[Rfam]
Shown here is a 70-nucleotide RNA from Alligator sinensis, a member of the family "Mammalian CPEB3 ribozyme".
RNA sequence: CUGGCAUAGCAACCAUAGAAGCGCUCACAUUGCGGCUCUGUCAGAUUCUAACGAAUAUGCGAAUUCUGCU
Numbered sequence: 001c002u003g004g005c006a007u008a009g010c011a012a013c014c015a016u017a018g019a020a021g022c023g024c025u026c027a028c029a030u031u032g033c034g035g036c037u038c039u040g041u042c043a044g045a046u047u048c049u050a051a052c053g054a055a056u057a058u059g060c061g062a063a064u065u066c067u068g069c070u
Stems, first nucleotide, its partner, number of pairs: 004038001008037003016068005021033003042059002045056004

The family's consensus secondary structure is taken from published work.